A member of the RNA family "skipping-rope RNA", 101 nucleotides long. The sequence is in the family's curated seed alignment. It is annotated as a small RNA.
[Rfam]
RNA sequence: UAGGUUAGAGGUUGAAAAGUAUUAAGUUACGCUGUCUCAACACGCUAUACUCGAAAGAGAAGUAAAAAGAAAUGUGGGGUUUGGCAGUCCCACCUAAACUA
Numbered sequence: 001u002a003g004g005u006u007a008g009a010g011g012u013u014g015a016a017a018a019g020u021a022u023u024a025a026g027u028u029a030c031g032c033u034g035u036c037u038c039a040a041c042a043c044g045c046u047a048u049a050c051u052c053g054a055a056a057g058a059g060a061a062g063u064a065a066a067a068a069g070a071a072a073u074g075u076g077g078g079g080u081u082u083g084g085c086a087g088u089c090c091c092a093c094c095u096a097a098a099c100u101a
Stems, first nucleotide, its partner, number of pairs: 001101003005097004011041005032087005043069001044063003074093005